RNA: Glycine riboswitch aptamer
Organism: Belnapia rosea
RNA sequence: GGACCUCUGGAAAGCCUGGUGCCGCAAGGUGCUGGCACCGAAGGAGUAAGGCCCGGCCCGAAGGCCGCUGGCCGAAUCUCUCAGGUUCACCGGACAGAGGGGGGCCA
Numbered sequence: 001g002g003a004c005c006u007c008u009g010g011a012a013a014g015c016c017u018g019g020u021g022c023c024g025c026a027a028g029g030u031g032c033u034g035g036c037a038c039c040g041a042a043g044g045a046g047u048a049a050g051g052c053c054c055g056g057c058c059c060g061a062a063g064g065c066c067g068c069u070g071g072c073c074g075a076a077u078c079u080c081u082c083a084g085g086u087u088c089a090c091c092g093g094a095c096a097g098a099g100g101g102g103g104g105c106c107a
Base pairs, nucleotide, nucleotide: 004100005099006098007097008096009095016035017034018033019032020031021030022029037086038085039084040082041081044080045079046078050073051072052071053070